[Rfam]
RNA sequence: CGGUUAACGGGAAAAAGUCACCUGGUCUUGGUUUUCUUGAACCUACCGCAGCUGUUAAAACAACCGUGUCACCAUAACGGAUAAGUGCUGCGCCAUUGGCUUGUUUCGCCAUUUGACCGACUUCGAUUACUAAAUCUUUUCCUGCCCAUGUGGACUUGAAUACUUGUUUUUCUGACAUAUUUUAGUCUCCUUUUACAUAGGAGGAGCGCGCCUUGCUAGAAACUUUACCAUGCAUAAUAAUUCUUCACGCACGCCUGAGGAACAUGGAUUUCUCAGACACACAUGAAUCCAAAAACCUACUACUAUCCGUGUACUAGCACGUUUUUGGAUUCAUG
Numbered sequence: 001c002g003g004u005u006a007a008c009g010g011g012a013a014a015a016a017g018u019c020a021c022c023u024g025g026u027c028u029u030g031g032u033u034u035u036c037u038u039g040a041a042c043c044u045a046c047c048g049c050a051g052c053u054g055u056u057a058a059a060a061c062a063a064c065c066g067u068g069u070c071a072c073c074a075u076a077a078c079g080g081a082u083a084a085g086u087g088c089u090g091c092g093c094c095a096u097u098g099g100c101u102u103g104u105u106u107c108g109c110c111a112u113u114u115g116a117c118c119g120a121c122u123u124c125g126a127u128u129a130c131u132a133a134a135u136c137u138u139u140u141c142c143u144g145c146c147c148a149u150g151u152g153g154a155c156u157u158g159a160a161u162a163c164u165u166g167u168u169u170u171u172c173u174g175a176c177a178u179a180u181u182u183u184a185g186u187c188u189c190c191u192u193u194u195a196c197a198u199a200g201g202a203g204g205a206g207c208g209c210g211c212c213u214u215g216c217u218a219g220a221a222a223c224u225u226u227a228c229c230a231u232g233c234a235u236a237a238u239a240a241u242u243c244u245u246c247a248c249g250c251a252c253g254c255c256u257g258a259g260g261a262a263c264a265u266g267g268a269u270u271u272c273u274c275a276g277a278c279a280c281a282c283a284u285g286a287a288u289c290c291a292a293a294a295a296c297c298u299a300c301u302a303c304u305a306u307c308c309g310u311g312u313a314c315u316a317g318c319a320c321g322u323u324u325u326u327g328g329a330u331u332c333a334u335g
Stems, first nucleotide, its partner, number of pairs: 003278003009273005014226005022219004027079001029077001030043005047068003051064001053062003102208006109200001111198002113195001116192001122158001125155001127153004136144001165177004231251003282335015300317002
The family of this 335-nucleotide RNA from Listeria booriae is "Listeria sRNA rliD". For this family Rfam cites "Identification of new noncoding RNAs in Listeria monocytogenes and prediction of mRNA targets" (Mandin et al., Nucleic Acids Res, 2007). It is annotated as an antisense RNA.